[Rfam]
RNA: PyrR binding site
Organism: Gottfriedia endophytica
RNA sequence: AGUCCCUUUUAAUGUGGUCCAGAGAGGCUACCAAAGGGUCUAGCUUGUCACAGCCUUUUUGUGGCAAAUAGGACUCUUUGUGUACCCACACAAAGAGUUUUUUUUA
Numbered sequence: 001a002g003u004c005c006c007u008u009u010u011a012a013u014g015u016g017g018u019c020c021a022g023a024g025a026g027g028c029u030a031c032c033a034a035a036g037g038g039u040c041u042a043g044c045u046u047g048u049c050a051c052a053g054c055c056u057u058u059u060u061g062u063g064g065c066a067a068a069u070a071g072g073a074c075u076c077u078u079u080g081u082g083u084a085c086c087c088a089c090a091c092a093a094a095g096a097g098u099u100u101u102u103u104u105u106a
Stems, first nucleotide, its partner, number of pairs: 004038006014031006045067009070101014